[Rfam]
Shown here is a 49-nucleotide sequence from Paracoccus aestuarii, a member of the family "Xanthine riboswitch aptamer (NMT1 RNA)". The family's consensus secondary structure is taken from published work. The source organism's lineage runs through Bacteria, Pseudomonadota, Rhodobacterales, Paracoccaceae and Paracoccus.

RNA sequence: CCCCGGAGUAGAAGCGUCCGAGGCCGCGGCCUUGGGAAUUGCUCCCUCA
Numbered sequence: 001c002c003c004c005g006g007a008g009u010a011g012a013a014g015c016g017u018c019c020g021a022g023g024c025c026g027c028g029g030c031c032u033u034g035g036g037a038a039u040u041g042c043u044c045c046c047u048c049a
Stems, first nucleotide, its partner, number of pairs: 005045006015034001018036002021032004